[Rfam]
RNA sequence: ACUCUGCGAUGAAGUGAGAGGUUGCUGUCGCCUUAGGCAGGUUUUUCCCAUGGAGUAUGUCACGAUCUUUGAAUCGGACGACAA
Numbered sequence: 001a002c003u004c005u006g007c008g009a010u011g012a013a014g015u016g017a018g019a020g021g022u023u024g025c026u027g028u029c030g031c032c033u034u035a036g037g038c039a040g041g042u043u044u045u046u047c048c049c050a051u052g053g054a055g056u057a058u059g060u061c062a063c064g065a066u067c068u069u070u071g072a073a074u075c076g077g078a079c080g081a082c083a084a
Stems, first nucleotide, its partner, number of pairs: 014051003018047004025040005058083004064079001066077002

Overview: This 84-nucleotide sequence from Acetobacterium woodii belongs to the Rfam family "S10-Clostridia ribosomal protein leader". Rfam classes the family as a cis-regulatory leader. The family's consensus secondary structure is taken from published work. For this family Rfam cites "Discovery of 20 novel ribosomal leader candidates in bacteria and archaea" (Eckert and Weinberg, BMC Microbiol, 2020). The match comes from Rfam's covariance-model search (51 bits).